[Rfam]
About this RNA: Rfam assigns this 168-nucleotide RNA from Nestor notabilis to the family "U1 spliceosomal RNA". Lineage of the source: Eukaryota > Sarcopterygii > Archelosauria > Saurischia > Nestor. Rfam 15.1 lists 40,184 matches to the family in 1,499 species. The literature on the family includes a 1997 paper in Nucleic Acids Res by Zwieb, "The uRNA database". The family's RNA type in Rfam is spliceosomal small nuclear RNA. Rfam's curators write: U1 is a small nuclear RNA (snRNA) component of the spliceosome (involved in pre-mRNA splicing). Its 5' end forms complementary base pairs with the 5' splice junction, thus defining the 5' donor site of an intron. There are significant differences in sequence and secondary structure between metazoan and yeast U1 snRNAs, the latter being much longer (568 nucleotides as compared to 164 nucleotides in human).
RNA sequence: AUACUUAUCUGGCAGGGGAAACACCAUGAUCAGGCAGGUGGUUUUCCCAGGACAAGGCUCAUCCCCUGCACUCUGGGUGUGCUGACCCCUGCAGCUUCCCCAACUGCAGGAAACUCGACUGCAUAACUGGGUUGUGUUUGUUUGUUUGUUUUUCUCAUGGCCAGCAGG
Numbered sequence: 001a002u003a004c005u006u007a008u009c010u011g012g013c014a015g016g017g018g019a020a021a022c023a024c025c026a027u028g029a030u031c032a033g034g035c036a037g038g039u040g041g042u043u044u045u046c047c048c049a050g051g052a053c054a055a056g057g058c059u060c061a062u063c064c065c066c067u068g069c070a071c072u073c074u075g076g077g078u079g080u081g082c083u084g085a086c087c088c089c090u091g092c093a094g095c096u097u098c099c100c101c102a103a104c105u106g107c108a109g110g111a112a113a114c115u116c117g118a119c120u121g122c123a124u125a126a127c128u129g130g131g132u133u134g135u136g137u138u139u140g141u142u143u144g145u146u147u148g149u150u151u152u153u154c155u156c157a158u159g160g161c162c163a164g165c166a167g168g
Stems, first nucleotide, its partner, number of pairs: 012122004016048006023042005049090003056083003060079005092117001094115001096112002099109001142167005148162001150160002153157001
A search with the family's covariance model found it, with a score of 86 bits.